[Rfam]
Actino-pnp RNA: a 73-nucleotide RNA from Wenjunlia tyrosinilytica. The base pairs follow the family's consensus structure, which is taken from published work. By type it is a cis-regulatory element. The source organism's lineage runs through Bacteria, Bacillati, Actinomycetes, Kitasatosporales and Wenjunlia.

RNA sequence: GCCGGUCCUCGGUAGUGGCCCCCGGGUGUCGUGCAACCGUGCGAGAUCCCGGAGGCUUCGAUCGAAGACCGGC
Numbered sequence: 001g002c003c004g005g006u007c008c009u010c011g012g013u014a015g016u017g018g019c020c021c022c023c024g025g026g027u028g029u030c031g032u033g034c035a036a037c038c039g040u041g042c043g044a045g046a047u048c049c050c051g052g053a054g055g056c057u058u059c060g061a062u063c064g065a066a067g068a069c070c071g072g073c
Base pairs, nucleotide, nucleotide: 001073002072003071004070005069006068007067009065010064011063012062013061017057018056019055020054022052023051024050025049026048028047029046030045